[Rfam]
RNA sequence: UACGCAUGAGGAUAGAGGAAGUCGUGUAGAAGCGACUGGUCGAGAAAUUCGCC
Number, nucleotide and partner (000 for none) at each position: 001u000002a000003c000004g000005c000006a000007u000008g000009a000010g000011g000012a000013u000014a000015g000016a000017g000018g000019a000020a037021g036022u035023c034024g033025u032026g000027u000028a000029g000030a000031a000032g025033c024034g023035a022036c021037u020038g000039g000040u000041c000042g000043a000044g000045a000046a000047a000048u000049u000050c000051g000052c000053c000